[Rfam]
RNA sequence: GCUGGUGUCAUUUUUGUGACUCGCAGCUUAUGUUUGUCAGGCCAGUUGCAUAGUCACAAAAGUGAUCCCCAGU
Numbered sequence: 001g002c003u004g005g006u007g008u009c010a011u012u013u014u015u016g017u018g019a020c021u022c023g024c025a026g027c028u029u030a031u032g033u034u035u036g037u038c039a040g041g042c043c044a045g046u047u048g049c050a051u052a053g054u055c056a057c058a059a060a061a062g063u064g065a066u067c068c069c070c071a072g073u
Base pairs, nucleotide, nucleotide: 002072003071004070005069007067008065009064010063011062012061013060014059015058016057017056018055019054020053023049024048025047026046027045028044
About this RNA: Shown here is a 73-nucleotide sequence from Scyliorhinus torazame, a member of the family "mir-153 microRNA precursor family". Pairs were carried over by alignment from the consensus structure, which was predicted with RNAalifold. The literature on the family includes a 2005 paper in Genes Dev by Chen et al., "The developmental miRNA profiles of zebrafish as determined by small RNA cloning". Lineage of the source: Eukaryota > Eumetazoa > Deuterostomia > Galeoidea > Scyliorhinus. Its family is annotated with miRNA-mediated post-transcriptional gene silencing and RISC complex in the Gene Ontology.